mir-27 microRNA precursor family: an 80-nucleotide sequence from Bagarius yarrelli. Gene Ontology terms of the family: RISC complex and miRNA-mediated post-transcriptional gene silencing. A search with the family's covariance model found it, with a score of 68 bits.
RNA sequence: AUGCGGUGCAGGACUUGGCUUGCUUUGUGAACAGAUCUGUAAAAAAGCCGUGUUCACAGUGGCUAAGUUCCGCUCCUCUG
Numbered sequence: 001a002u003g004c005g006g007u008g009c010a011g012g013a014c015u016u017g018g019c020u021u022g023c024u025u026u027g028u029g030a031a032c033a034g035a036u037c038u039g040u041a042a043a044a045a046a047g048c049c050g051u052g053u054u055c056a057c058a059g060u061g062g063c064u065a066a067g068u069u070c071c072g073c074u075c076c077u078c079u080g
Stems, first nucleotide, its partner, number of pairs: 011070010027057007